[Rfam]
RNA sequence: UGUGGUUGUCGAAUGACGACCAGGAAAAAUCCUAAACUUUUUCAUAAUAAUCUCCCAUAGAAGUCACCGAAUACGGUGGCUUUUUC
Numbered sequence: 001u002g003u004g005g006u007u008g009u010c011g012a013a014u015g016a017c018g019a020c021c022a023g024g025a026a027a028a029a030u031c032c033u034a035a036a037c038u039u040u041u042u043c044a045u046a047a048u049a050a051u052c053u054c055c056c057a058u059a060g061a062a063g064u065c066a067c068c069g070a071a072u073a074c075g076g077u078g079g080c081u082u083u084u085u086c
Stems, first nucleotide, its partner, number of pairs: 001024001003022008060083009
Dot-bracket structure: (.((((((((....)))))))).)...................................(((((((((......)))))))))...
This 86-nucleotide RNA sequence from Streptococcus sp. DD10 belongs to the Rfam family "Cia-dependent small RNA csRNA1".
A reference for the family is Halfmann et al. (2007), "Identification of the genes directly controlled by the response regulator CiaR in Streptococcus pneumoniae: five out of 15 promoters drive expression of small non-coding RNAs", Mol Microbiol.